RNA: eL15-Euryarchaeota ribosomal protein leader
RNA sequence: CGGAAAAGGGUUUCCGCUGGGAUGUAGCCGCAGGGCUGAACCGUAAA
Numbered sequence: 001c002g003g004a005a006a007a008g009g010g011u012u013u014c015c016g017c018u019g020g021g022a023u024g025u026a027g028c029c030g031c032a033g034g035g036c037u038g039a040a041c042c043g044u045a046a047a
Base pairs, nucleotide, nucleotide: 001016002015003014004013005012018043019042020041026037027036028035029034
Dot-bracket structure: (((((......))))).(((.....((((....))))...)))....